This 70-nucleotide sequence from Enterococcus rivorum belongs to the Rfam family "L17 ribosomal protein downstream element". The source organism's lineage runs through Bacteria, Bacillati, Bacillota, Lactobacillales and Enterococcus. It is annotated as a cis-regulatory element. The family's consensus secondary structure is taken from published work. A search with the family's covariance model found it, with a score of 58 bits.
[Rfam]
RNA sequence: AGAGUGUUAUGAUGUUGGAGGAGACUCCGAGUCUAGCUCUGUGUUACUCACUGAUAGUAUUUCAGUGAGU
Numbered sequence: 001a002g003a004g005u006g007u008u009a010u011g012a013u014g015u016u017g018g019a020g021g022a023g024a025c026u027c028c029g030a031g032u033c034u035a036g037c038u039c040u041g042u043g044u045u046a047c048u049c050a051c052u053g054a055u056a057g058u059a060u061u062u063c064a065g066u067g068a069g070u
Base pairs, nucleotide, nucleotide: 002039003038004037005036011033012032013031017028018027019026020025046070047069048068049067050066051065052064053063054062